[Rfam]
Shown here is a 155-nucleotide sequence from Enterovirga rhinocerotis, a member of the family "6S / SsrS RNA". The base pairs follow the family's consensus structure, which is taken from published work. The family's RNA type in Rfam is non-coding RNA gene. NCBI's taxonomy places the organism under Bacteria, Pseudomonadati, Hyphomicrobiales, Methylobacteriaceae, Enterovirga.

RNA sequence: GCGGUGCUGCGGGGUGCGUCAGGAACAUUAUCCCCGGGGCCUUAUCGAUCCUUAAGGGAGCUGUCCCUGGUCUCGUCCGUGGACUUGGCCAAUACGGUUCCCACCUACGUUGUAGGUUCCCGGGAUCGACUUCCAACGGCCUUCGCGGCUCCGCG
Numbered sequence: 001g002c003g004g005u006g007c008u009g010c011g012g013g014g015u016g017c018g019u020c021a022g023g024a025a026c027a028u029u030a031u032c033c034c035c036g037g038g039g040c041c042u043u044a045u046c047g048a049u050c051c052u053u054a055a056g057g058g059a060g061c062u063g064u065c066c067c068u069g070g071u072c073u074c075g076u077c078c079g080u081g082g083a084c085u086u087g088g089c090c091a092a093u094a095c096g097g098u099u100c101c102c103a104c105c106u107a108c109g110u111u112g113u114a115g116g117u118u119c120c121c122g123g124g125a126u127c128g129a130c131u132u133c134c135a136a137c138g139g140c141c142u143u144c145g146c147g148g149c150u151c152c153g154c155g
Stems, first nucleotide, its partner, number of pairs: 002153003006149006012142004017138003031125004036120006056102003060098005068091004075084001
Dot-bracket structure: .(((.((((((((((.(((...........((((.((((((..............(((.(((((...((((...(........)...))))..))))).)))............)))))).))))..........))))))).)))))).)))..